[Rfam]
RNA: L2-Alphaproteobacteria ribosomal protein leader
RNA sequence: GGGCACCUACGGGGGCCUCUCACAUAGCGGGGAUUGAUCCUCGCGCUUGCUAAACGGAAGACAGAAA
Number, nucleotide and partner (000 for none) at each position: 001g018002g017003g016004c015005a000006c014007c013008u012009a000010c000011g000012g008013g007014g006015g004016c003017c002018u001019c000020u000021c000022a000023c000024a000025u000026a000027g044028c043029g042030g041031g040032g039033a038034u000035u000036g000037a000038u033039c032040c031041u030042c029043g028044c027045g000046c000047u000048u000049g000050c000051u000052a000053a000054a000055c000056g000057g000058a000059a000060g000061a000062c000063a000064g000065a000066a000067a000